Rfam assigns this 167-nucleotide RNA sequence from Streptomyces sp. yr375 to the family "c-di-AMP riboswitch aptamer (ydaO/yuaA leader)". The organism belongs to Streptomyces, within Bacteria.
RNA sequence: CCGUGCGCACUGCCGAAUCCCGCAAGGGAACCGGGGAACCACCACCUUGGGGUGAAUCUCGCGGAAGCCAUCGUGAACUCACGGAGUCCACGGCCGGUAUACGCGCGUAGGAGACCUUCCCGCUCCGAACCCGUCAGCUAACCCGGUAGGCGACGGAAGGAAAGGAG
Numbered sequence: 001c002c003g004u005g006c007g008c009a010c011u012g013c014c015g016a017a018u019c020c021c022g023c024a025a026g027g028g029a030a031c032c033g034g035g036g037a038a039c040c041a042c043c044a045c046c047u048u049g050g051g052g053u054g055a056a057u058c059u060c061g062c063g064g065a066a067g068c069c070a071u072c073g074u075g076a077a078c079u080c081a082c083g084g085a086g087u088c089c090a091c092g093g094c095c096g097g098u099a100u101a102c103g104c105g106c107g108u109a110g111g112a113g114a115c116c117u118u119c120c121c122g123c124u125c126c127g128a129a130c131c132c133g134u135c136a137g138c139u140a141a142c143c144c145g146g147u148a149g150g151c152g153a154c155g156g157a158a159g160g161a162a163a164g165g166a167g
Stems, first nucleotide, its partner, number of pairs: 011152004018029003030147006040049002050132003058107001060105004110126004